[Rfam]
RNA sequence: ACAGCGUACUUUCCUUCUAUAUAGUAGACGAGAUGCAUGUAUUUCUCCUACUAUAUAGUAGGUAAGUACGCGGUUU
Numbered sequence: 001a002c003a004g005c006g007u008a009c010u011u012u013c014c015u016u017c018u019a020u021a022u023a024g025u026a027g028a029c030g031a032g033a034u035g036c037a038u039g040u041a042u043u044u045c046u047c048c049u050a051c052u053a054u055a056u057a058g059u060a061g062g063u064a065a066g067u068a069c070g071c072g073g074u075u076u
Base pairs, nucleotide, nucleotide: 001074002073004071005070006069007068008067009066010065011064013062014061015060017058018057019056020055021054022053023052024051025050026049027048030045031044033042034041035040